[Rfam]
RNA sequence: AAUUCCUGCGAUGAACUAGCUGAAUAAUUUAAAAGUAGUGGCCUGAUGACCAUUGAUGACAAGCUCUGUUCUGAGGGAUU
Number, nucleotide and partner (000 for none) at each position: 001a080002a079003u078004u077005c076006c075007u000008g000009c000010g000011a000012u000013g000014a000015a000016c000017u000018a000019g000020c000021u000022g000023a000024a000025u000026a000027a000028u000029u000030u000031a000032a000033a000034a000035g000036u000037a000038g000039u000040g000041g000042c000043c000044u000045g000046a000047u000048g000049a000050c000051c000052a000053u000054u000055g000056a000057u000058g000059a000060c000061a000062a000063g000064c000065u000066c000067u000068g000069u000070u000071c000072u000073g000074a000075g006076g005077g004078a003079u002080u001
RNA: Small nucleolar RNA R21